[Rfam]
Nucleotides: 159
Stems, first nucleotide, its partner, number of pairs: 001030001033141006043078005079126003087103004106120004
Number, partner (000 for none) and nucleotide at each position: 001030c002000g003000g004000u005000a006000a007000c008000c009000c010000a011000c012000a013000c014000c015000c016000a017000c018000c019000c020000a021000c022000g023000u024000a025000c026000g027000g028000c029000a030001g031000g032000a033141g034140c035139g036138g037137g038136g039000g040000a041000c042000c043078c044077a045076g046075g047074u048000a049000a050000g051000u052000c053000g054000c055000c056000g057000a058000u059000c060000c061000g062000u063000a064000c065000u066000c067000c068000g069000g070000a071000c072000c073000g074047g075046c076045u077044u078043g079126g080125g081124g082000u083000g084000a085000a086000g087103c088102c089101g090100c091000a092000u093000u094000c095000a096000c097000a098000g099000u100090g101089c102088g103087g104000c105000c106120g107119g108118g109117c110000a111000u112000c113000u114000c115000c116000a117109g118108u119107c120106c121000g122000a123000a124081c125080c126079c127000g128000a129000c130000a131000g132000c133000u134000c135000a136038c137037c138036u139035c140034g141033c142000a143000g144000g145000c146000g147000g148000a149000g150000g151000a152000g153000a154000g155000g156000a157000a158000u159000u

The family of this 159-nucleotide RNA from Streptomyces scopuliridis is "c-di-AMP riboswitch aptamer (ydaO/yuaA leader)". Lineage of the source: Bacteria > Actinomycetota > Actinomycetes > Kitasatosporales > Streptomyces scopuliridis. A search with the family's covariance model found it, with a score of 70 bits.